Description
The family of this 54-nucleotide RNA sequence from Rubellimicrobium roseum is "terC RNA". The family's RNA type in Rfam is cis-regulatory element. The base pairs follow the family's consensus structure, which is taken from published work.
[Rfam]
RNA sequence: ACGGGGGUCCGGGCCCCUCUGGCGGGGACCGCCCCGCGAUGUCGGACCUUCAUU
Numbered sequence: 001a002c003g004g005g006g007g008u009c010c011g012g013g014c015c016c017c018u019c020u021g022g023c024g025g026g027g028a029c030c031g032c033c034c035c036g037c038g039a040u041g042u043c044g045g046a047c048c049u050u051c052a053u054u
Stems, first nucleotide, its partner, number of pairs: 006048007022037006